[Rfam]
RNA sequence: GUGUUGCUUUAUAAAGGAGUAGUUUUAAGUAAAGUGUGAGAUACUAUACUAGGCCUCGUGAAAGUGAACCUUUUGCUAAACACCGUCAAAUAGCGGAAACCCCUUAAAGCUGUUUUAACUAAAUGUAUAAGGUAACUAGUACAUGGCUCAGGUAAUGACUCGAGGUAUAGAAAAAUAAAAAUAGAUGCACAAAAGGAAAUAGGGCAUCCGCUGCCAAGCUACUAGUGUUUAUACUAGGAGUGCAGUCCAUCGACUAAAUGGUGGUGAGCGUUAAAAUUAUUGUUUUAAUGCUUAAGAUGUAGUCAGACCCUACUUUAAAAAGUAUA
Numbered sequence: 001g002u003g004u005u006g007c008u009u010u011a012u013a014a015a016g017g018a019g020u021a022g023u024u025u026u027a028a029g030u031a032a033a034g035u036g037u038g039a040g041a042u043a044c045u046a047u048a049c050u051a052g053g054c055c056u057c058g059u060g061a062a063a064g065u066g067a068a069c070c071u072u073u074u075g076c077u078a079a080a081c082a083c084c085g086u087c088a089a090a091u092a093g094c095g096g097a098a099a100c101c102c103c104u105u106a107a108a109g110c111u112g113u114u115u116u117a118a119c120u121a122a123a124u125g126u127a128u129a130a131g132g133u134a135a136c137u138a139g140u141a142c143a144u145g146g147c148u149c150a151g152g153u154a155a156u157g158a159c160u161c162g163a164g165g166u167a168u169a170g171a172a173a174a175a176u177a178a179a180a181a182u183a184g185a186u187g188c189a190c191a192a193a194a195g196g197a198a199a200u201a202g203g204g205c206a207u208c209c210g211c212u213g214c215c216a217a218g219c220u221a222c223u224a225g226u227g228u229u230u231a232u233a234c235u236a237g238g239a240g241u242g243c244a245g246u247c248c249a250u251c252g253a254c255u256a257a258a259u260g261g262u263g264g265u266g267a268g269c270g271u272u273a274a275a276a277u278u279a280u281u282g283u284u285u286u287a288a289u290g291c292u293u294a295a296g297a298u299g300u301a302g303u304c305a306g307a308c309c310c311u312a313c314u315u316u317a318a319a320a321a322g323u324a325u326a
Base pairs, nucleotide, nucleotide: 003020004019005018081266082265083264084263085262087260088259092212093211094210095209096208097207102204103203104202105201106200213246214245218241219240220239224235225234226233227232250305252304253303254302255301256300268291269290270289271288272287273286274285275284276283311324312323313322314321315320

A member of the RNA family "Group I catalytic intron" from Ophiocordyceps polyrhachis-furcata, 326 nucleotides long. The base pairs follow the family's consensus structure, which is taken from published work. On this family, see Cech, Annu Rev Biochem 1990: "Self-splicing of group I introns". Taxonomically the source falls in Ophiocordyceps polyrhachis-furcata (Eukaryota, Pezizomycotina, sordariomyceta, Sordariomycetes). From the family's description: Group I catalytic introns are large self-splicing ribozymes. The match comes from Rfam's covariance-model search (80 bits).